The family of this 83-nucleotide sequence from Pangasianodon hypophthalmus is "Small nucleolar RNA SNORD11B". Gene Ontology terms of the family: RNA processing and nucleolus. A reference for the family is Yang et al. (2006), "snoSeeker: an advanced computational package for screening of guide and orphan snoRNA genes in the human genome", Nucleic Acids Res. Rfam classes the family as a C/D-box small nucleolar RNA.
RNA sequence: GGCAAGCGCUGAUGAUUAUGACCUUGUGUCAAGACCCUGAGAUCGAUGAAGGUGUCUAAGUCACUACCUCAUCUGAGCUUGUG
Numbered sequence: 001g002g003c004a005a006g007c008g009c010u011g012a013u014g015a016u017u018a019u020g021a022c023c024u025u026g027u028g029u030c031a032a033g034a035c036c037c038u039g040a041g042a043u044c045g046a047u048g049a050a051g052g053u054g055u056c057u058a059a060g061u062c063a064c065u066a067c068c069u070c071a072u073c074u075g076a077g078c079u080u081g082u083g
Base pairs, nucleotide, nucleotide: 002082003081004080005079006078007077